[Rfam]
RNA sequence: AACAGAGUAAAUCAUUAGCGUUAAGUGUUCGUGAAUGGGAUGUUGUCACGAAACGAAAUGAGUAUCAUGCGACUAAUGAUUGCGUCCGCUGUU
Number, nucleotide and partner (000 for none) at each position: 001a093002a092003c091004a090005g089006a000007g000008u000009a000010a081011a080012u079013c078014a077015u076016u075017a074018g073019c071020g070021u069022u000023a000024a000025g054026u053027g000028u052029u051030c050031g049032u048033g047034a046035a000036u000037g000038g087039g086040a085041u084042g083043u000044u000045g000046u034047c033048a032049c031050g030051a029052a028053a026054c025055g000056a000057a000058a068059u067060g066061a065062g000063u000064a000065u061066c060067a059068u058069g021070c020071g019072a000073c018074u017075a016076a015077u014078g013079a012080u011081u010082g000083c042084g041085u040086c039087c038088g000089c005090u004091g003092u002093u001
RNA: THF (Tetrahydrofolate) riboswitch aptamer
Organism: Granulicatella sp. zg-ZJ